[Rfam]
RNA sequence: AAUGGGCAAGCCGAAAACCAUAUAGAGUAGGUA
Numbered sequence: 001a002a003u004g005g006g007c008a009a010g011c012c013g014a015a016a017a018c019c020a021u022a023u024a025g026a027g028u029a030g031g032u033a
Stems, first nucleotide, its partner, number of pairs: 002021004010032003
Dot-bracket structure: .((((....[[[.....))))........]]].

The family of this 33-nucleotide RNA sequence from Flavobacterium sp. KMS is "DUF805b RNA". It scores 40 bits against the family's covariance model. Taxonomically the source falls in Flavobacterium (Bacteria, Pseudomonadati, Flavobacteriales, Flavobacteriaceae). By type it is a cis-regulatory element. The family's consensus secondary structure is taken from published work.